[Rfam]
RNA sequence: AAUGUUGAUGUAAUUGCUGUAUAGUCUAAACUAUACAGAGGAAAGUCCAUGCUCGCACAAGCUGAGAUGCUUGUAGUGUUCGUGCUUGACGAAAUCAUAAGUCAAGGUAGCUAUUUUAGCUAACGGCAGGGAAAUUCCCUAAGUCUCUCAAGAGAUAGGGGGAAAAUACCUUGAAAGUGCCACAGUGACGUAGCUAGGUUGGAAACAAUCUAGGUGGAACGCGGUAAACCCCACGAGCGAGCAACCCAAAUAUUGGUAGGGGCAUCUUCUAUUAGGGAAUACGGAACCGAAUGAAGGACAAGCAUUUUGCUUGUAGACAGAUGAUUACACCUUUUGUACGAGGCUGACCACCGCUUGGAGUACGGAGGACAGAACAUGGCUUACGGAC
Numbered sequence: 001a002a003u004g005u006u007g008a009u010g011u012a013a014u015u016g017c018u019g020u021a022u023a024g025u026c027u028a029a030a031c032u033a034u035a036c037a038g039a040g041g042a043a044a045g046u047c048c049a050u051g052c053u054c055g056c057a058c059a060a061g062c063u064g065a066g067a068u069g070c071u072u073g074u075a076g077u078g079u080u081c082g083u084g085c086u087u088g089a090c091g092a093a094a095u096c097a098u099a100a101g102u103c104a105a106g107g108u109a110g111c112u113a114u115u116u117u118a119g120c121u122a123a124c125g126g127c128a129g130g131g132a133a134a135u136u137c138c139c140u141a142a143g144u145c146u147c148u149c150a151a152g153a154g155a156u157a158g159g160g161g162g163a164a165a166a167u168a169c170c171u172u173g174a175a176a177g178u179g180c181c182a183c184a185g186u187g188a189c190g191u192a193g194c195u196a197g198g199u200u201g202g203a204a205a206c207a208a209u210c211u212a213g214g215u216g217g218a219a220c221g222c223g224g225u226a227a228a229c230c231c232c233a234c235g236a237g238c239g240a241g242c243a244a245c246c247c248a249a250a251u252a253u254u255g256g257u258a259g260g261g262g263c264a265u266c267u268u269c270u271a272u273u274a275g276g277g278a279a280u281a282c283g284g285a286a287c288c289g290a291a292u293g294a295a296g297g298a299c300a301a302g303c304a305u306u307u308u309g310c311u312u313g314u315a316g317a318c319a320g321a322u323g324a325u326u327a328c329a330c331c332u333u334u335u336g337u338a339c340g341a342g343g344c345u346g347a348c349c350a351c352c353g354c355u356u357g358g359a360g361u362a363c364g365g366a367g368g369a370c371a372g373a374a375c376a377u378g379g380c381u382u383a384c385g386g387a388c
Stems, first nucleotide, its partner, number of pairs: 004388003007384001009329007017038006043382003047379005052241005057074006080236005085106006107124001108122006125231002128171003136162004143156005177229002179225003194213008245261003265297005298314006331368009